[Rfam]
RNA sequence: GUGUAGUCGUAGUCUAUACGAGUCUUUGUCUUUGUAUCUUCUAACAAGGAUACAAUACAUAGGCUUUUAAGAUCCGAUUGCGG
Numbered sequence: 001g002u003g004u005a006g007u008c009g010u011a012g013u014c015u016a017u018a019c020g021a022g023u024c025u026u027u028g029u030c031u032u033u034g035u036a037u038c039u040u041c042u043a044a045c046a047a048g049g050a051u052a053c054a055a056u057a058c059a060u061a062g063g064c065u066u067u068u069a070a071g072a073u074c075c076g077a078u079u080g081c082g083g
Stems, first nucleotide, its partner, number of pairs: 002082008012073003020066006028058002032055009
RNA: MIR5643 microRNA precursor family
Organism: Arabidopsis thaliana